[Rfam]
RNA sequence: AGUCCUGAGGAGCGCUGCGACGAUCCCCGGCUGCCCUUUGCGGGCGCCAGGCGGGUUGCCAGGCUCAGGAAUCUCACCAGACGUCGCCAGAGGCGGCGUCCAGCAACGGCGCUCACCUUUG
Numbered sequence: 001a002g003u004c005c006u007g008a009g010g011a012g013c014g015c016u017g018c019g020a021c022g023a024u025c026c027c028c029g030g031c032u033g034c035c036c037u038u039u040g041c042g043g044g045c046g047c048c049a050g051g052c053g054g055g056u057u058g059c060c061a062g063g064c065u066c067a068g069g070a071a072u073c074u075c076a077c078c079a080g081a082c083g084u085c086g087c088c089a090g091a092g093g094c095g096g097c098g099u100c101c102a103g104c105a106a107c108g109g110c111g112c113u114c115a116c117c118u119u120u121g
Base pairs, nucleotide, nucleotide: 003070004069005068006067007066008065021058022057023056024055025054026053

The record is a 121-nucleotide RNA sequence from Bordetella sp. 02P26C-1, which matches "SAH (S-adenosyl-L-homocysteine) riboswitch aptamer" in Rfam. The base pairs follow the family's consensus structure, which is taken from published work. A reference for the family is Wang et al. (2008), "Riboswitches that sense S-adenosylhomocysteine and activate genes involved in coenzyme recycling", Mol Cell. A search with the family's covariance model found it, with a score of 50 bits. Taxonomically the source falls in Bordetella (Bacteria, Pseudomonadota, Betaproteobacteria, Burkholderiales).